The family of this 60-nucleotide sequence from Isoptericola variabilis is "msiK RNA". It scores 57 bits against the family's covariance model. The source organism's lineage runs through Bacteria, Actinomycetota, Actinomycetes, Isoptericola and Isoptericola variabilis. Rfam 15.1 lists 1,374 matches to the family in 1,364 species.
RNA sequence: CACAGACACCCGACCACGACGGAUCGUCCGGCACGUACCUGCCGGUGGAGGGAUGUACAC
Numbered sequence: 001c002a003c004a005g006a007c008a009c010c011c012g013a014c015c016a017c018g019a020c021g022g023a024u025c026g027u028c029c030g031g032c033a034c035g036u037a038c039c040u041g042c043c044g045g046u047g048g049a050g051g052g053a054u055g056u057a058c059a060c
Stems, first nucleotide, its partner, number of pairs: 010052002014048003028045006